Shown here is a 94-nucleotide RNA from Kineococcus radiotolerans, a member of the family "Glycine riboswitch aptamer".
[Rfam]
RNA sequence: UUCCCCCCGGCGGGAGAGCCCCACCGGCCCGCCGGUGGGCACCGAAGGAGCAACCACCCCGGAACCUCUCAGGUCCACGUACCGCCACGGGCAG
Numbered sequence: 001u002u003c004c005c006c007c008c009g010g011c012g013g014g015a016g017a018g019c020c021c022c023a024c025c026g027g028c029c030c031g032c033c034g035g036u037g038g039g040c041a042c043c044g045a046a047g048g049a050g051c052a053a054c055c056a057c058c059c060c061g062g063a064a065c066c067u068c069u070c071a072g073g074u075c076c077a078c079g080u081a082c083c084g085c086c087a088c089g090g091g092c093a094g
Stems, first nucleotide, its partner, number of pairs: 006089001009086005020039006041074003044070002048068003054062002

NCBI's taxonomy places the organism under Bacteria, Bacillati, Kineosporiales, Kineosporiaceae, Kineococcus radiotolerans.